[Rfam]
RNA sequence: AGCUGCGUCAUGAGCACAAAGCGAACUAUUCUUUCGCCUUUUACUAAAGAAUACCGUGUGCACGUGACAAUAAGCAGCAUACACUAAUUUUUGAAGGGUGCCUACUCCUUGAGUGGGUC
Dot-bracket structure: ..((((.(((((.(((((........((((((((...........))))))))...))))).)))))......))))......................((((((.......)))))).
Numbered sequence: 001a002g003c004u005g006c007g008u009c010a011u012g013a014g015c016a017c018a019a020a021g022c023g024a025a026c027u028a029u030u031c032u033u034u035c036g037c038c039u040u041u042u043a044c045u046a047a048a049g050a051a052u053a054c055c056g057u058g059u060g061c062a063c064g065u066g067a068c069a070a071u072a073a074g075c076a077g078c079a080u081a082c083a084c085u086a087a088u089u090u091u092u093g094a095a096g097g098g099u100g101c102c103u104a105c106u107c108c109u110u111g112a113g114u115g116g117g118u119c
Stems, first nucleotide, its partner, number of pairs: 003077004008067005014061005027053008100118006
Rfam assigns this 119-nucleotide sequence from Aegilops tauschii to the family "U5 spliceosomal RNA". Rfam links the family to the GO terms spliceosomal tri-snRNP complex assembly and U5 snRNP. The organism belongs to Aegilops tauschii, within Eukaryota.